The family of this 65-nucleotide RNA from Podargus strigoides is "mir-36_2 microRNA precursor family". Clan: mir-36 clan. Lineage of the source: Eukaryota > Deuterostomia > Sauria > Theropoda > Podargus. Rfam 15.1 lists 30 matches to the family in 13 species.

[Rfam]
RNA sequence: UUCAGGAUGUGGACCACGGUUGAUGUAGUCAAAACAUUUCUCAUCACCGGGUGCACAUUCGGCCA
Numbered sequence: 001u002u003c004a005g006g007a008u009g010u011g012g013a014c015c016a017c018g019g020u021u022g023a024u025g026u027a028g029u030c031a032a033a034a035c036a037u038u039u040c041u042c043a044u045c046a047c048c049g050g051g052u053g054c055a056c057a058u059u060c061g062g063c064c065a
Stems, first nucleotide, its partner, number of pairs: 003062001005060007013052003017049003021046002024043002027041002